The family of this 91-nucleotide RNA is "DUF3800-VII RNA".
[Rfam]
RNA sequence: GUCAGGCAUGCGCCAGACAAACUCAAGGGAACGAAAAACGUUCCAGCACACUAAGAUGUGUGGGAUCCUUGAGCUGGGGGCCUGAUUUAUU
Dot-bracket structure: (((((((...(.((((.....((((((((((((.....))))))..((((......)))).......))))))))))).))))))).....
By type it is a small RNA.